Rfam assigns this 141-nucleotide RNA from Alligator sinensis to the family "U4 spliceosomal RNA". The match comes from Rfam's covariance-model search (90 bits).
[Rfam]
RNA sequence: AGCUUUGCACAGUGGCAGUAUCACAACUGAUGAGACCAAGCCGAGGCGCAAUUAUUGCUAGAUGAAAACUUUUCCCAAUUCUCUGCCAUGGUGACUUGAAAUAAAGUUAGCAUUGGCAAUUUUUGAUGAUCUCCACGGAGA
Numbered sequence: 001a002g003c004u005u006u007g008c009a010c011a012g013u014g015g016c017a018g019u020a021u022c023a024c025a026a027c028u029g030a031u032g033a034g035a036c037c038a039a040g041c042c043g044a045g046g047c048g049c050a051a052u053u054a055u056u057g058c059u060a061g062a063u064g065a066a067a068a069c070u071u072u073u074c075c076c077a078a079u080u081c082u083c084u085g086c087c088a089u090g091g092u093g094a095c096u097u098g099a100a101a102u103a104a105a106g107u108u109a110g111c112a113u114u115g116g117c118a119a120u121u122u123u124u125g126a127u128g129a130u131c132u133c134c135a136c137g138g139a140g141a
Base pairs, nucleotide, nucleotide: 020052021051024048027046028045034042036040085117086116087115088113089112090111092109093108094107095106096105097104130141131140132139133138

Taxonomically the source falls in Alligator (Eukaryota, Sauropsida, Archosauria, Alligatoridae).